[Rfam]
RNA sequence: UCGUUUAAUCAUUGAUGAUAGAUUAAGAAAUUAGGGUUUUUUUAUUUUUGGUUUUUGAUAAAGAGAAAGAUGCCUCUUCUUUCAGCAGCAAGAUUAUUCUUGUUAGCUUUGUUCUGGAGGCACAGAU
Numbered sequence: 001u002c003g004u005u006u007a008a009u010c011a012u013u014g015a016u017g018a019u020a021g022a023u024u025a026a027g028a029a030a031u032u033a034g035g036g037u038u039u040u041u042u043u044a045u046u047u048u049u050g051g052u053u054u055u056u057g058a059u060a061a062a063g064a065g066a067a068a069g070a071u072g073c074c075u076c077u078u079c080u081u082u083c084a085g086c087a088g089c090a091a092g093a094u095u096a097u098u099c100u101u102g103u104u105a106g107c108u109u110u111g112u113u114c115u116g117g118a119g120g121c122a123c124a125g126a127u
Stems, first nucleotide, its partner, number of pairs: 008052004014046005021039002071122007084108003087104007
RNA: Brassica rapa small nucleolar RNA 775
Organism: Arabidopsis thaliana